This 57-nucleotide RNA from Kaistia soli belongs to the Rfam family "terC RNA".
RNA sequence: AGCGGGGUCCGGGCCCCUCUGGCGGUGCGUCGCCCACCGCGAUGUCGGACCCUUGAA
Numbered sequence: 001a002g003c004g005g006g007g008u009c010c011g012g013g014c015c016c017c018u019c020u021g022g023c024g025g026u027g028c029g030u031c032g033c034c035c036a037c038c039g040c041g042a043u044g045u046c047g048g049a050c051c052c053u054u055g056a057a
Stems, first nucleotide, its partner, number of pairs: 006051007022040006

The family has 129 seed sequences and 1,112 matches in Rfam 15.1.
Lineage of the source: Bacteria > Pseudomonadati > Pseudomonadota > Alphaproteobacteria > Kaistia soli.
It is annotated as a cis-regulatory element.